[Rfam]
Rfam assigns this 118-nucleotide sequence from Physcomitrium patens to the family "MIR538 microRNA precursor family". Taxonomically the source falls in Physcomitrium (Eukaryota, Viridiplantae, Bryophytina, Funariaceae). The family's consensus secondary structure was predicted with RNAalifold. Rfam's curators put it in the seed alignment.
RNA sequence: CCAUGCUUCUCUAACGUUGCAUGGAGUCUAUGUCUGGACCUCCUCCAUUUGCUCUUUCAAGAGAAUGUGAGAAUUUCGAGAUUCGGACAUAGCCUUCAUGCAUGCUAGAGUAGAAUGG
Numbered sequence: 001c002c003a004u005g006c007u008u009c010u011c012u013a014a015c016g017u018u019g020c021a022u023g024g025a026g027u028c029u030a031u032g033u034c035u036g037g038a039c040c041u042c043c044u045c046c047a048u049u050u051g052c053u054c055u056u057u058c059a060a061g062a063g064a065a066u067g068u069g070a071g072a073a074u075u076u077c078g079a080g081a082u083u084c085g086g087a088c089a090u091a092g093c094c095u096u097c098a099u100g101c102a103u104g105c106u107a108g109a110g111u112a113g114a115a116u117g118g
Stems, first nucleotide, its partner, number of pairs: 001118004009110005015104003019101008028092011040080003043071003046067005
Rfam 15.1 lists 5 matches to the family in 2 species.